The record is a 233-nucleotide RNA from Physcomitrium patens, which matches "RNase MRP" in Rfam. Gene Ontology terms of the family: ribonuclease MRP complex, rRNA processing and ribonuclease MRP activity. The organism belongs to Physcomitrium, within Eukaryota.
RNA sequence: CGUCGUGGUGAAGGGGUGCUUCAGGAUUCCUGAGUGAAAUUCCCCGAGCUUACGGGCAGAGAUGCCAUCCCGGAAGGGAAGACCCGUUCGACGAAGCCUGUCCAGCGGCGCAGAAAAGUUGGACAUCGAGCCCUCGAGGCAGGCUCGCAGCGGCAGCUUGCUACAGCACAGUAAUGCAGCCCAACCCUGCAGUAGCAGUGUGUUAACCGAAUGGGGAUUACUCUCGCCAUGAU
Numbered sequence: 001c002g003u004c005g006u007g008g009u010g011a012a013g014g015g016g017u018g019c020u021u022c023a024g025g026a027u028u029c030c031u032g033a034g035u036g037a038a039a040u041u042c043c044c045c046g047a048g049c050u051u052a053c054g055g056g057c058a059g060a061g062a063u064g065c066c067a068u069c070c071c072g073g074a075a076g077g078g079a080a081g082a083c084c085c086g087u088u089c090g091a092c093g094a095a096g097c098c099u100g101u102c103c104a105g106c107g108g109c110g111c112a113g114a115a116a117a118g119u120u121g122g123a124c125a126u127c128g129a130g131c132c133c134u135c136g137a138g139g140c141a142g143g144c145u146c147g148c149a150g151c152g153g154c155a156g157c158u159u160g161c162u163a164c165a166g167c168a169c170a171g172u173a174a175u176g177c178a179g180c181c182c183a184a185c186c187c188u189g190c191a192g193u194a195g196c197a198g199u200g201u202g203u204u205a206a207c208c209g210a211a212u213g214g215g216g217a218u219u220a221c222u223c224u225c226g227c228c229a230u231g232a233u
Base pairs, nucleotide, nucleotide: 002233003232004231005230006229007228008227009226010225011224014181015180017178018177019176020034021033022032023031024030025029038219039218040217042216043215044214045213055066056065057064058063068079069078070077071076081154083152087150088149096140097139098138099137107132108131109130116126118124119123184203185202187200